[Rfam]
RNA: Plastid-psbA-1 3UTR RNA
RNA sequence: AAAAAAAAAAGACUUAUACUUAUGUAAACUACAUUGAUAAUAAAGGUAAAGGGGCAAUAACCCAUUUCUUGAGAGAACAAGAAGUUGGUUAUUGCCCCUUU
Numbered sequence: 001a002a003a004a005a006a007a008a009a010a011g012a013c014u015u016a017u018a019c020u021u022a023u024g025u026a027a028a029c030u031a032c033a034u035u036g037a038u039a040a041u042a043a044a045g046g047u048a049a050a051g052g053g054g055c056a057a058u059a060a061c062c063c064a065u066u067u068c069u070u071g072a073g074a075g076a077a078c079a080a081g082a083a084g085u086u087g088g089u090u091a092u093u094g095c096c097c098c099u100u101u
Stems, first nucleotide, its partner, number of pairs: 048101013062087001064085001066083005